[Rfam]
Nucleotides: 074
Base pairs, nucleotide, nucleotide: 001074002073005070006069008067009066010065011062012061013060014059015058016057017056018055019054020053021051022050024049025048026047027046028045029044
Number, partner (000 for none) and nucleotide at each position: 001074g002073g003000c004000u005070g006069u007000g008067u009066g010065g011062g012061u013060c014059u015058c016057u017056g018055g019054c020053a021051u022050g023000a024049u025048g026047a027046u028045u029044u030000g031000g032000g033000a034000c035000g036000g037000a038000a039000a040000a041000u042000a043000a044029a045028a046027a047026u048025c049024a050022c051021a052000u053020u054019g055018c056017c057016a058015g059014g060013g061012a062011u063000u064000a065010c066009u067008a068000c069006a070005c071000u072000g073002c074001u
The family of this 74-nucleotide RNA from Lates calcarifer is "mir-23 microRNA precursor family". The base pairs follow the family's consensus structure, which was predicted with PFOLD. A search with the family's covariance model found it, with a score of 58 bits. Gene Ontology terms of the family: gene silencing by miRNA and RISC complex.